[Rfam]
Shown here is a 49-nucleotide sequence, a member of the family "DUF2693-FD RNA". Rfam's curators write: DUF2693-FD RNA is a non-coding RNA (ncRNA) recognised in Bacteroides by a bioinformatic analisis by Zasha Weinberg. No recognised genes. The family's RNA type in Rfam is small RNA.
RNA sequence: UCCCUGUUGACGGAAUGAACGGAAUUCAGUAGCGAUAACUGAGCAGGGA
Numbered sequence: 001u002c003c004c005u006g007u008u009g010a011c012g013g014a015a016u017g018a019a020c021g022g023a024a025u026u027c028a029g030u031a032g033c034g035a036u037a038a039c040u041g042a043g044c045a046g047g048g049a
Stems, first nucleotide, its partner, number of pairs: 001049007011021002017033001023036001026042005

Background
The sequence is in the family's curated seed alignment.